The family of this 52-nucleotide sequence from Rhodoblastus acidophilus is "serC leader". Rfam links the family to the GO term regulation of gene expression. The pairing is the family consensus, mapped onto this sequence. About the family: This family is a putative regulatory RNA structure that is found upstream of the serC-serA operon in some alpha-proteobacteria. The final stem of the structure overlaps the ribosome binding site of the serC reading frame. On this family, see Corbino et al., Genome Biol 2005: "Evidence for a second class of S-adenosylmethionine riboswitches and other regulatory RNA motifs in alpha-proteobacteria". By type it is a cis-regulatory leader.
[Rfam]
RNA sequence: CUGCGGGACACCUCGCCCCAACGCGAGGCGCCCAUCUGUGAGGAUGGCCCAU
Number, nucleotide and partner (000 for none) at each position: 001c000002u000003g000004c000005g000006g000007g000008a000009c000010a000011c028012c027013u026014c025015g024016c023017c000018c000019c000020a000021a000022c000023g016024c015025g014026a013027g012028g011029c000030g000031c000032c047033c046034a045035u044036c043037u042038g000039u000040g000041a000042g037043g036044a035045u034046g033047g032048c000049c000050c000051a000052u000